[Rfam]
Rfam assigns this 63-nucleotide RNA sequence from Phyllostomus discolor to the family "Small nucleolar RNA SNORD75".
RNA sequence: AGCCUGAGAUGGUUUAAGAGCAGUGGACAGAAGGGAUUUCUGAAAAAAUUCUAUUCUGUGGCU
Numbered sequence: 001a002g003c004c005u006g007a008g009a010u011g012g013u014u015u016a017a018g019a020g021c022a023g024u025g026g027a028c029a030g031a032a033g034g035g036a037u038u039u040c041u042g043a044a045a046a047a048a049u050u051c052u053a054u055u056c057u058g059u060g061g062c063u
Base pairs, nucleotide, nucleotide: 001063002062003061004060
The literature on the family includes a 2002 paper in Mol Cell Biol by Galardi et al., "Purified box C/D snoRNPs are able to reproduce site-specific 2'-O-methylation of target RNA in vitro".